[Rfam]
The record is a 25-nucleotide sequence from Furovirus tritici, which matches "Pseudoknot of upstream pseudoknot domain (UPD) of the 3'UTR" in Rfam.
RNA sequence: CGCUGUACAGUGCGUUAAACUGUAC
Numbered sequence: 001c002g003c004u005g006u007a008c009a010g011u012g013c014g015u016u017a018a019a020c021u022g023u024a025c
Stems, first nucleotide, its partner, number of pairs: 001014003005025007
Source information
NCBI's taxonomy places the organism under Viruses, Riboviria, Kitrinoviricota, Martellivirales, Furovirus tritici. On this family, see Koenig et al., Arch Virol 1999: "Molecular characterization of a new furovirus mainly infecting rye". Pairs were carried over by alignment from the consensus structure, which is taken from published work. Its family is annotated with regulation of viral transcription and positive regulation of viral translation in the Gene Ontology.